[Rfam]
RNA sequence: UGACGGGGGCCCGCACAAGCGGUGGAGCAUGUGGUUUAAUUCGAUGCAACGCGAAGAACCUUACCUGGGCUUGACAUGUCCGGAACCCUGCAGAGAUGUGGGGGUGCCCUUCGGGGAAUCGGAACACAGGUGCUGCAUGGCUGUCGUCAGCUCGUGUCGUGAGAUGUUGGGUUAAGUCCCGCAACGAGCGCAACCCUUGUUCCUAGUUGCCAGCGGUUCGGCCGGGCACUCUAGGGAGACUGCCGGUGACAAACCGGAGGAAGGUGGGGAUGACGUCAAGUCCUCAUGGCCUUUAUGUCCAGGGCUACACACGUGCUACAAUGGCGCGUACAGAGGGAAGCCAAGCCGCGAGGUGGAGCAGACCCCAGAAAGCGCGUCGUAGUUCGGAUUGCAGUCUGCAACUCGACUGCAUGAAGUCGGAAUCGCUAGUAAUCGCGGAUCAGCAUGCCGCGGUGAAUACGUUCCCGGGCCUUGUACACACCGCCCGUCACACCAUGGGAGUGGAUGGUACCAGAAGCCGUUAGCCUAACCUUCGGGGGGGGCGACGACCACGGUAUGGUUCAUGACUGGGGUGAAGUCGUAACAAGG
Numbered sequence: 001u002g003a004c005g006g007g008g009g010c011c012c013g014c015a016c017a018a019g020c021g022g023u024g025g026a027g028c029a030u031g032u033g034g035u036u037u038a039a040u041u042c043g044a045u046g047c048a049a050c051g052c053g054a055a056g057a058a059c060c061u062u063a064c065c066u067g068g069g070c071u072u073g074a075c076a077u078g079u080c081c082g083g084a085a086c087c088c089u090g091c092a093g094a095g096a097u098g099u100g101g102g103g104g105u106g107c108c109c110u111u112c113g114g115g116g117a118a119u120c121g122g123a124a125c126a127c128a129g130g131u132g133c134u135g136c137a138u139g140g141c142u143g144u145c146g147u148c149a150g151c152u153c154g155u156g157u158c159g160u161g162a163g164a165u166g167u168u169g170g171g172u173u174a175a176g177u178c179c180c181g182c183a184a185c186g187a188g189c190g191c192a193a194c195c196c197u198u199g200u201u202c203c204u205a206g207u208u209g210c211c212a213g214c215g216g217u218u219c220g221g222c223c224g225g226g227c228a229c230u231c232u233a234g235g236g237a238g239a240c241u242g243c244c245g246g247u248g249a250c251a252a253a254c255c256g257g258a259g260g261a262a263g264g265u266g267g268g269g270a271u272g273a274c275g276u277c278a279a280g281u282c283c284u285c286a287u288g289g290c291c292u293u294u295a296u297g298u299c300c301a302g303g304g305c306u307a308c309a310c311a312c313g314u315g316c317u318a319c320a321a322u323g324g325c326g327c328g329u330a331c332a333g334a335g336g337g338a339a340g341c342c343a344a345g346c347c348g349c350g351a352g353g354u355g356g357a358g359c360a361g362a363c364c365c366c367a368g369a370a371a372g373c374g375c376g377u378c379g380u381a382g383u384u385c386g387g388a389u390u391g392c393a394g395u396c397u398g399c400a401a402c403u404c405g406a407c408u409g410c411a412u413g414a415a416g417u418c419g420g421a422a423u424c425g426c427u428a429g430u431a432a433u434c435g436c437g438g439a440u441c442a443g444c445a446u447g448c449c450g451c452g453g454u455g456a457a458u459a460c461g462u463u464c465c466c467g468g469g470c471c472u473u474g475u476a477c478a479c480a481c482c483g484c485c486c487g488u489c490a491c492a493c494c495a496u497g498g499g500a501g502u503g504g505a506u507g508g509u510a511c512c513a514g515a516a517g518c519c520g521u522u523a524g525c526c527u528a529a530c531c532u533u534c535g536g537g538g539g540g541g542g543c544g545a546c547g548a549c550c551a552c553g554g555u556a557u558g559g560u561u562c563a564u565g566a567c568u569g570g571g572g573u574g575a576a577g578u579c580g581u582a583a584c585a586a587g588g
Stems, first nucleotide, its partner, number of pairs: 001478002003475003007472007015462002019426005024319001026317008034308002040055004064303007077126002079123005086103007105118001107116002129292002132290004138286002140281003143277001145275002150189006156165003168181004195269004200237007210226002214224003240260002243257005323378007335366003340359002345354003385416001390411007432454007481587001483584001486580002491574004496569003501564006508557005517549001519547004524543004530538002
Shown here is a 588-nucleotide part of an RNA from Acidithiobacillus caldus, a member of the family "Bacterial small subunit ribosomal RNA".
For this family Rfam cites "The comparative RNA web (CRW) site: an online database of comparative sequence and structure information for ribosomal, intron, and other RNAs" (Cannone et al., BMC Bioinformatics, 2002).
Clan: SSU clan.
It scores 1548 bits against the family's covariance model.
NCBI's taxonomy places the organism under Bacteria, Pseudomonadati, Acidithiobacillia, Acidithiobacillus, Acidithiobacillus caldus.